[Rfam]
RNA: nrdJ RNA
Organism: Streptomyces longwoodensis
Nucleotides: 082
Stems, first nucleotide, its partner, number of pairs: 005033010016022001049071008
Number, partner (000 for none) and nucleotide at each position: 001000a002000c003000c004000g005033g006032u007031u008030g009029c010028g011027g012026g013025c014024g015000g016022c017000g018000c019000g020000u021000g022016g023000g024014c025013g026012c027011c028010c029009g030008c031007a032006g033005c034000a035000c036000c037000a038000g039000a040000c041000a042000c043000a044000u045000c046000a047000c048000c049071g050070u051069g052068c053067c054066a055065c056064g057000g058000g059000a060000a061000c062000a063000u064056c065055g066054u067053g068052g069051c070050a071049u072000u073000u074000c075000a076000g077000g078000g079000c080000g081000u082000u